[Rfam]
RNA sequence: CCAUCACCACCAUCAUAAGCGGUAGCCUUCGGAGCUGACUGCCGAAGGUGCAUUCCUUCUGGCGGUUGAUUCAAGAUCACAUAUAACCCUCGGAAGGAAUUCCGGGGGUUUUUUGUU
Numbered sequence: 001c002c003a004u005c006a007c008c009a010c011c012a013u014c015a016u017a018a019g020c021g022g023u024a025g026c027c028u029u030c031g032g033a034g035c036u037g038a039c040u041g042c043c044g045a046a047g048g049u050g051c052a053u054u055c056c057u058u059c060u061g062g063c064g065g066u067u068g069a070u071u072c073a074a075g076a077u078c079a080c081a082u083a084u085a086a087c088c089c090u091c092g093g094a095a096g097g098a099a100u101u102c103c104g105g106g107g108g109u110u111u112u113u114u115g116u117u
Base pairs, nucleotide, nucleotide: 008041009040011037012036014034020031021030042062043061044059045058046057047056048055081114083112085110086109087108088107089106090105091104092103093102094101095100
Dot-bracket structure: .......((.((.(.....((........))..).))..))(((((((......))))).))..................(.(.(((((((((((....))))))))))).).)...
The record is a 117-nucleotide RNA sequence from Shewanella mangrovi, which matches "Histidine operon leader" in Rfam. At least 6 amino acid operons are known to be regulated by attenuation. In each a leader sequence of 150-200 bp is found upstream of the first gene in the operon. A reference for the family is Kolter and Yanofsky (1982), "Attenuation in amino acid biosynthetic operons", Annu Rev Genet. The organism belongs to Shewanella, within Bacteria. By type it is a cis-regulatory leader.